[Rfam]
RNA: SAM (S-adenosyl methionine) riboswitch aptamer
RNA sequence: GGUCAUGAGCUCCAGCGACAAGCCCCGGCUGGCUGGACGGCAACCCUCCUCGCGAUGGGGUGCCCCGGGUGAUGACCGGGCCGCAUCGCAGUGGUGCGGCAAGGCGAGACC
Numbered sequence: 001g002g003u004c005a006u007g008a009g010c011u012c013c014a015g016c017g018a019c020a021a022g023c024c025c026c027g028g029c030u031g032g033c034u035g036g037a038c039g040g041c042a043a044c045c046c047u048c049c050u051c052g053c054g055a056u057g058g059g060g061u062g063c064c065c066c067g068g069g070u071g072a073u074g075a076c077c078g079g080g081c082c083g084c085a086u087c088g089c090a091g092u093g094g095u096g097c098g099g100c101a102a103g104g105c106g107a108g109a110c111c
Stems, first nucleotide, its partner, number of pairs: 001077004009038001011037006021030002039064003044060003049054001080100009